Shown here is an 86-nucleotide sequence, a member of the family "GA-cis RNA". By type it is a small RNA. Rfam's curators put it in the seed alignment. The base pairs follow the family's consensus structure, which is taken from published work.
[Rfam]
RNA sequence: AAGAGGAGGCACUCAUGCAUUGAAAAUGCAUACUAAAAUGUGCCGACGAAAUGCCGCCGAACGAAUGUGAGGGGGCAAUACAAAAG
Numbered sequence: 001a002a003g004a005g006g007a008g009g010c011a012c013u014c015a016u017g018c019a020u021u022g023a024a025a026a027u028g029c030a031u032a033c034u035a036a037a038a039u040g041u042g043c044c045g046a047c048g049a050a051a052u053g054c055c056g057c058c059g060a061a062c063g064a065a066u067g068u069g070a071g072g073g074g075g076c077a078a079u080a081c082a083a084a085a086g
Stems, first nucleotide, its partner, number of pairs: 008044005015031006053076003057072002061068002